Nucleotides: 117
Stems, first nucleotide, its partner, number of pairs: 002072010015060003019056004024050002027047001029045001031043002094115001096113002100111003
Number, partner (000 for none) and nucleotide at each position: 001000g002072a003071g004070a005069g006068g007067u008066g009065u010064c011063c012000g013000u014000u015060c016059a017058a018000u019056c020055u021054g022053g023000c024050u025049g026000c027047u028000g029045g030000a031043a032042g033000c034000g035000u036000a037000g038000a039000g040000a041000a042032c043031u044000c045029c046000c047027a048000u049025c050024a051000u052000c053022c054021c055020a056019g057000g058017u059016u060015g061000c062000a063011g064010g065009g066008c067007a068006c069005c070004u071003c072002u073000c074000c075000u076000c077000a078000u079000a080000u081000c082000g083000c084000g085000g086000c087000u088000u089000u090000c091000a092000u093000c094115g095000c096113a097112u098000u099000a100111c101110c102109a103000a104000c105000c106000c107000c108000g109102u110101g111100g112097a113096u114000c115094c116000a117000g